[Rfam]
RNA sequence: GUGCCGACGCCAAUAGAGGGAUGGCUUGGCUUGAGAAGAGAUGAAGGACGUGGCAAGCUGCGAUAAGCUUAGGGUAGGUGCAGGCGACCUAUGAUCCUGAGAUGUCCGAAUUGGAAUCCUAUGCGUAAGCAUACUCAAUUACAAUGGUAGUUGAGAUCGAACCGUGGGAAGUGAAGCAUCUGAGUACCACGUGGAAAAGAAAUCAACAGAGAUUUCCCAAGUAGCGGCGAGCGAAAAGGAAAUAGCCCAAACUGAAUCUGCCAUGGUAACAUGGUAGAGAUGUGGUGUUGUUAUGGUAUUACGAUCCUCAAAUCAGAGCUUAAGUGGCCUGGAAAGGCCUGGCGAAGAAGGUGAUACCCCCGUGAGCGAAGGAAGAGAGGAUCUUACUAUAACGUGAGUAGUUGUCCUUGGUAGUGGGCAAUGAAUUUAGGUGAAAGUAGCAUCUAAGGCUAAAUAUUUCUCAAGACCGAUAGCGGAGUAGUACCGCGAGGGAAAGCUGAAAAGUACCCCGGAAGGGGGGUGAAAAGUGCCUGAAAUCUAUUGGUUACAGACG
Numbered sequence: 001g002u003g004c005c006g007a008c009g010c011c012a013a014u015a016g017a018g019g020g021a022u023g024g025c026u027u028g029g030c031u032u033g034a035g036a037a038g039a040g041a042u043g044a045a046g047g048a049c050g051u052g053g054c055a056a057g058c059u060g061c062g063a064u065a066a067g068c069u070u071a072g073g074g075u076a077g078g079u080g081c082a083g084g085c086g087a088c089c090u091a092u093g094a095u096c097c098u099g100a101g102a103u104g105u106c107c108g109a110a111u112u113g114g115a116a117u118c119c120u121a122u123g124c125g126u127a128a129g130c131a132u133a134c135u136c137a138a139u140u141a142c143a144a145u146g147g148u149a150g151u152u153g154a155g156a157u158c159g160a161a162c163c164g165u166g167g168g169a170a171g172u173g174a175a176g177c178a179u180c181u182g183a184g185u186a187c188c189a190c191g192u193g194g195a196a197a198a199g200a201a202a203u204c205a206a207c208a209g210a211g212a213u214u215u216c217c218c219a220a221g222u223a224g225c226g227g228c229g230a231g232c233g234a235a236a237a238g239g240a241a242a243u244a245g246c247c248c249a250a251a252c253u254g255a256a257u258c259u260g261c262c263a264u265g266g267u268a269a270c271a272u273g274g275u276a277g278a279g280a281u282g283u284g285g286u287g288u289u290g291u292u293a294u295g296g297u298a299u300u301a302c303g304a305u306c307c308u309c310a311a312a313u314c315a316g317a318g319c320u321u322a323a324g325u326g327g328c329c330u331g332g333a334a335a336g337g338c339c340u341g342g343c344g345a346a347g348a349a350g351g352u353g354a355u356a357c358c359c360c361c362g363u364g365a366g367c368g369a370a371g372g373a374a375g376a377g378a379g380g381a382u383c384u385u386a387c388u389a390u391a392a393c394g395u396g397a398g399u400a401g402u403u404g405u406c407c408u409u410g411g412u413a414g415u416g417g418g419c420a421a422u423g424a425a426u427u428u429a430g431g432u433g434a435a436a437g438u439a440g441c442a443u444c445u446a447a448g449g450c451u452a453a454a455u456a457u458u459u460c461u462c463a464a465g466a467c468c469g470a471u472a473g474c475g476g477a478g479u480a481g482u483a484c485c486g487c488g489a490g491g492g493a494a495a496g497c498u499g500a501a502a503a504g505u506a507c508c509c510c511g512g513a514a515g516g517g518g519g520g521u522g523a524a525a526a527g528u529g530c531c532u533g534a535a536a537u538c539u540a541u542u543g544g545u546u547a548c549a550g551a552c553g
Base pairs, nucleotide, nucleotide: 009545010544011543012542013541014540015539016538017537023531024497025496028468029467030465031464032463033462034461035460036458037457046107047106048105049062050061051060068101069100070099071098072097073096077089078088079087112121113120114119134155135154136153137152138151139150140149141148142147162193163191164190165189166188167187173180174179203210204209214241215240216239217238224232225231244451245450246449247448252285253284254283262273263272264271265270294389295388296387297386303383304382305381306380318367319366320365324340326339327338328337329336343347350360351359401422402421403420404419405418406417407416429445430444431443432442433441484491485490

Rfam assigns this 553-nucleotide part of an RNA from Nitrosotalea sinensis to the family "Archaeal large subunit ribosomal RNA". Its Rfam clan is "LSU clan". A search with the family's covariance model found it, with a score of 2700 bits.